The record is a 116-nucleotide sequence from Mycoplasma marinum, which matches "FMN riboswitch aptamer (RFN element)" in Rfam. A search with the family's covariance model found it, with a score of 69 bits. A reference for the family is Vitreschak et al. (2002), "Regulation of riboflavin biosynthesis and transport genes in bacteria by transcriptional and translational attenuation", Nucleic Acids Res. The family's consensus secondary structure is taken from published work.
RNA sequence: UUGCAGUUUCCUGACUGAGUUAAUUUCUCAACCGGAUGUAAUAGCCAUCGUACUCUUUGAGCAUGAUCAGGUGGAAUUCCUGGGCCGACAGUAAAGUCUGAAUAUAGAAAAUGCAG
Numbered sequence: 001u002u003g004c005a006g007u008u009u010c011c012u013g014a015c016u017g018a019g020u021u022a023a024u025u026u027c028u029c030a031a032c033c034g035g036a037u038g039u040a041a042u043a044g045c046c047a048u049c050g051u052a053c054u055c056u057u058u059g060a061g062c063a064u065g066a067u068c069a070g071g072u073g074g075a076a077u078u079c080c081u082g083g084g085c086c087g088a089c090a091g092u093a094a095a096g097u098c099u100g101a102a103u104a105u106a107g108a109a110a111a112u113g114c115a116g
Base pairs, nucleotide, nucleotide: 003114004113005112007110008109009108010107017029018028019027031097032096033087034086035049036048037047038046044085045084054061067083068082069081070080071079089100090099091098